[Rfam]
RNA: c-di-GMP-I riboswitch aptamer
Organism: Gottfriedia endophytica
RNA sequence: UUCUCAUAUGGGCAAAUUUUAUGAAAGUAAAAGACGCAAAGCCACGGGCCUAAAACAACGUGCUUGUCAUGGUAGCCGGGUUACAAAU
Dot-bracket structure: ...........((...((((((....))))))...))..((((.((((((....((((.....))))...)))..)))))))......